[Rfam]
RNA sequence: UUGAAGAAUUUAAAGACUUUCAACUUGUAGACUUGAAGAAUUUAAAGACUUCAACUUGCAGACUUAAAGAAUUUGAAGACCUCAACU
Numbered sequence: 001u002u003g004a005a006g007a008a009u010u011u012a013a014a015g016a017c018u019u020u021c022a023a024c025u026u027g028u029a030g031a032c033u034u035g036a037a038g039a040a041u042u043u044a045a046a047g048a049c050u051u052c053a054a055c056u057u058g059c060a061g062a063c064u065u066a067a068a069g070a071a072u073u074u075g076a077a078g079a080c081c082u083c084a085a086c087u
Stems, first nucleotide, its partner, number of pairs: 001085004006080001009077006017069004022065001026060004033054006

The record is an 87-nucleotide RNA sequence from Solanum commersonii, which matches "MIR8024 microRNA precursor family" in Rfam. Its family is annotated with miRNA-mediated post-transcriptional gene silencing and RISC complex in the Gene Ontology.